[Rfam]
RNA sequence: GCGAGACACCUGGUCCGAACGCGAGCAGUGCCCGAUAAACUGUCCUCGGAUCGACGAGGGGCCGCAGCCCCCUGCCGGUCCGCAAACCACCAGCCAGCAGCCGCUGCAAACACAGGGAG
Numbered sequence: 001g002c003g004a005g006a007c008a009c010c011u012g013g014u015c016c017g018a019a020c021g022c023g024a025g026c027a028g029u030g031c032c033c034g035a036u037a038a039a040c041u042g043u044c045c046u047c048g049g050a051u052c053g054a055c056g057a058g059g060g061g062c063c064g065c066a067g068c069c070c071c072c073u074g075c076c077g078g079u080c081c082g083c084a085a086a087c088c089a090c091c092a093g094c095c096a097g098c099a100g101c102c103g104c105u106g107c108a109a110a111c112a113c114a115g116g117g118a119g
Stems, first nucleotide, its partner, number of pairs: 048081006056075001058073004095106004
A member of the RNA family "Streptomyces-metK RNA" from Streptomyces solincola, 119 nucleotides long. Pairs were carried over by alignment from the consensus structure, which is taken from published work. Rfam classes the family as a small RNA.